[Rfam]
The family of this 147-nucleotide RNA sequence from Dermacoccus nishinomiyaensis is "c-di-AMP riboswitch aptamer (ydaO/yuaA leader)". NCBI's taxonomy places the organism under Bacteria, Bacillati, Micrococcales, Dermacoccaceae, Dermacoccus.

RNA sequence: AUUCGCACCGUGCGAACCGCAGACGAGGGUGGGGGACCCACUCGUGGCACUUGUUGAGUGCCUUGGGGUGAAGCCGGUCCCGAACCGGCCGAGCACCUGACCGCUCGAACCCGACAGCUCACCUCACCGGCGUCGUCAGGAAAGGAA
Numbered sequence: 001a002u003u004c005g006c007a008c009c010g011u012g013c014g015a016a017c018c019g020c021a022g023a024c025g026a027g028g029g030u031g032g033g034g035g036a037c038c039c040a041c042u043c044g045u046g047g048c049a050c051u052u053g054u055u056g057a058g059u060g061c062c063u064u065g066g067g068g069u070g071a072a073g074c075c076g077g078u079c080c081c082g083a084a085c086c087g088g089c090c091g092a093g094c095a096c097c098u099g100a101c102c103g104c105u106c107g108a109a110c111c112c113g114a115c116a117g118c119u120c121a122c123c124u125c126a127c128c129g130g131c132g133u134c135g136u137c138a139g140g141a142a143a144g145g146a147a
Base pairs, nucleotide, nucleotide: 006132008130009129017028018027029127030126031125032124033123034122039065040064066112067111068110074088075087076086077085091106092105093104094103
The pairing is the family consensus, mapped onto this sequence.